[Rfam]
RNA sequence: GUUUUGCUUUAGCAAAACGAAAACCACUGUUUUGGUUUUGCUUUAGCAAAAC
Numbered sequence: 001g002u003u004u005u006g007c008u009u010u011a012g013c014a015a016a017a018c019g020a021a022a023a024c025c026a027c028u029g030u031u032u033u034g035g036u037u038u039u040g041c042u043u044u045a046g047c048a049a050a051a052c
Base pairs, nucleotide, nucleotide: 001052002051003050005048006047007046010045011042012041013040014039015038016037017036018035020032022031023030024029